[Rfam]
Notes:
MIR7486 microRNA precursor family: an 87-nucleotide RNA from Gossypium armourianum. The family's consensus secondary structure was predicted with RNAalifold. Rfam 15.1 lists 10,132 matches to the family in 36 species. Gene Ontology terms of the family: RISC complex and miRNA-mediated post-transcriptional gene silencing.
RNA sequence: CACGUCAGCACGCUUUGCUGACGUGGACACAAAUCGCUCUGACGUGGACGCGAUUUGUGUCCACGUUAGCAAAGCGCGCUAACGUGG
Number, nucleotide and partner (000 for none) at each position: 001c086002a085003c084004g083005u082006c000007a080008g079009c078010a000011c076012g075013c074014u073015u072016u071017g070018c069019u068020g067021a066022c000023g064024u063025g062026g061027a060028c059029a058030c057031a056032a055033a054034u053035c052036g051037c050038u000039c000040u047041g000042a000043c000044g000045u000046g000047g040048a000049c000050g037051c036052g035053a034054u033055u032056u031057g030058u029059g028060u027061c026062c025063a024064c023065g000066u021067u020068a019069g018070c017071a016072a015073a014074g013075c012076g011077c000078g009079c008080u007081a000082a005083c004084g003085u002086g001087g000